Rfam assigns this 287-nucleotide sequence from Hahella chejuensis to the family "5' ureB small RNA". For this family Rfam cites "Helicobacter pylori 5'ureB-sRNA, a cis-encoded antisense small RNA, negatively regulates ureAB expression by transcription termination" (Wen et al., J Bacteriol, 2013). Gene Ontology term of the family: negative regulation of gene expression.
RNA sequence: CUUCUUCGAUUUGCUGCGGACAGAUGAAAUGUAUGUGGGCGUCGAUGCCGCCGGCGGUGGCGAUCAUACCUUCGCCAGCGAUAACUUCCGUGCCGGGACCGAUAAUGAUGUCGAUGUUGUCCUGUAUGUCCGGGUUGCCGGCUUUGCCGAUGGCGGCGAUGCGACCCUGCUUGAGCCCGAUAUCCGCCUUGACGACGCCCCAGUGGUCGAGGAUCAAGGCAUUGGUGAUGACGGUGUCCACCGCUUCUGUAUUAGGGCGUUGCGACUGCCCCAUGCCAUCGCGGAUG
Number, nucleotide and partner (000 for none) at each position: 001c287002u000003u285004c000005u283006u000007c281008g280009a279010u000011u159012u158013g157014c156015u155016g154017c153018g076019g075020a000021c000022a072023g071024a000025u000026g000027a000028a000029a000030u053031g052032u000033a000034u050035g049036u000037g048038g000039g046040c000041g000042u000043c000044g000045a000046u039047g000048c037049c035050g034051c000052c031053g030054g000055c000056g000057g069058u068059g067060g000061c000062g000063a000064u000065c000066a000067u059068a058069c057070c000071u023072u022073c000074g000075c019076c018077a000078g147079c000080g000081a144082u000083a000084a000085c140086u000087u000088c000089c000090g138091u137092g136093c000094c134095g000096g000097g130098a129099c128100c000101g000102a125103u124104a000105a123106u000107g121108a120109u119110g000111u116112c000113g000114a000115u000116g111117u000118u000119g109120u108121c107122c000123u105124g103125u102126a000127u000128g099129u098130c097131c000132g000133g000134g094135u000136u092137g091138c090139c000140g085141g000142c000143u000144u081145u000146g000147c078148c000149g000150a000151u000152g000153g017154c016155g015156g014157c013158g012159a011160u000161g000162c000163g000164a000165c000166c268167c000168u000169g000170c000171u264172u000173g000174a261175g260176c259177c257178c256179g000180a000181u000182a000183u000184c000185c000186g220187c219188c218189u217190u216191g215192a000193c000194g000195a000196c000197g000198c000199c000200c209201c000202a000203g000204u000205g000206g000207u000208c000209g200210a000211g000212g000213a000214u000215c191216a190217a189218g188219g187220c186221a000222u000223u254224g253225g252226u000227g000228a000229u000230g247231a246232c000233g000234g244235u243236g242237u000238c000239c000240a000241c000242c236243g235244c234245u000246u231247c230248u000249g000250u000251a000252u225253u224254a223255g000256g178257g177258c000259g176260u175261u174262g000263c000264g171265a000266c000267u000268g166269c000270c000271c000272c000273a000274u000275g000276c000277c000278a000279u009280c008281g007282c000283g005284g000285a003286u000287g001